[Rfam]
RNA: Bacterial small signal recognition particle RNA
Organism: Hominibacterium faecale
RNA sequence: GUUGGGGUCCUGCGCAAUAAGACUCCGUGAACCUUGUCAGGUCCGGAAGGAAGCAGCAAUAAGCGGAAGCUCUUAUGUGCCGCAGAUCAGCCUUUGCUAA
Numbered sequence: 001g002u003u004g005g006g007g008u009c010c011u012g013c014g015c016a017a018u019a020a021g022a023c024u025c026c027g028u029g030a031a032c033c034u035u036g037u038c039a040g041g042u043c044c045g046g047a048a049g050g051a052a053g054c055a056g057c058a059a060u061a062a063g064c065g066g067a068a069g070c071u072c073u074u075a076u077g078u079g080c081c082g083c084a085g086a087u088c089a090g091c092c093u094u095u096g097c098u099a100a
Stems, first nucleotide, its partner, number of pairs: 004094005010085005015077001017076006024067005034059004042051003